Notes
Rfam assigns this 185-nucleotide RNA sequence from Vagococcus entomophilus to the family "M-box riboswitch aptamer (ykoK leader)". M-box riboswitch, also know as ykoK leader is described as a metaloregulatory RNA that sense divalent metals and function as a genetic control element of genes related to divalent metal transport in bacteria. It was first reported upstream of the B.subtilis ykoK gene and genes with related functions in other bacteria.

[Rfam]
RNA sequence: UAACUUAUCUGUUAGGUGAGGCUCCUAUAUGGAAAUACGCUACUGCCCUACAACUAUCGAGAGACAGUUGUACAUGUAUCAAGUGAUACUGGGUUAGCAGGAAUCGUCGGAUUAAGGCUUUUCUUAAUGUAGCUGAAGAAUUUUCUACGCCAUAUAGUGCUAAAACUCAACGUGGGGAUACUCUG
Numbered sequence: 001u002a003a004c005u006u007a008u009c010u011g012u013u014a015g016g017u018g019a020g021g022c023u024c025c026u027a028u029a030u031g032g033a034a035a036u037a038c039g040c041u042a043c044u045g046c047c048c049u050a051c052a053a054c055u056a057u058c059g060a061g062a063g064a065c066a067g068u069u070g071u072a073c074a075u076g077u078a079u080c081a082a083g084u085g086a087u088a089c090u091g092g093g094u095u096a097g098c099a100g101g102a103a104u105c106g107u108c109g110g111a112u113u114a115a116g117g118c119u120u121u122u123c124u125u126a127a128u129g130u131a132g133c134u135g136a137a138g139a140a141u142u143u144u145c146u147a148c149g150c151c152a153u154a155u156a157g158u159g160c161u162a163a164a165a166c167u168c169a170a171c172g173u174g175g176g177g178a179u180a181c182u183c184u185g
Stems, first nucleotide, its partner, number of pairs: 006180005011171002013115001015167003020161003025157008039133005045094004056087003100124004106118003135145003